[Rfam]
RNA sequence: UCAAGACCAAUGGGAGAGCGUGGUUUUAACCACCGCCGAAGGCGUAACACCCGUAACCGCUCAGGCACAAAGAACUAUUGGCACAGG
Numbered sequence: 001u002c003a004a005g006a007c008c009a010a011u012g013g014g015a016g017a018g019c020g021u022g023g024u025u026u027u028a029a030c031c032a033c034c035g036c037c038g039a040a041g042g043c044g045u046a047a048c049a050c051c052c053g054u055a056a057c058c059g060c061u062c063a064g065g066c067a068c069a070a071a072g073a074a075c076u077a078u079u080g081g082c083a084c085a086g087g
Stems, first nucleotide, its partner, number of pairs: 007081007020033004035066003038062002042060003048053001